Nucleotides: 052
Stems, first nucleotide, its partner, number of pairs: 001015005017048003024043007
Number, partner (000 for none) and nucleotide at each position: 001015c002014g003013g004012g005011a006000u007000u008000a009000g010000g011005u012004c013003c014002c015001g016000u017048u018047g019046g020000a021000a022000u023000g024043u025042a026041g027040u028039c029038c030037u031000g032000c033000a034000g035000g036000c037030a038029g039028g040027g041026c042025u043024g044000a045000a046019c047018c048017g049000u050000g051000a052000a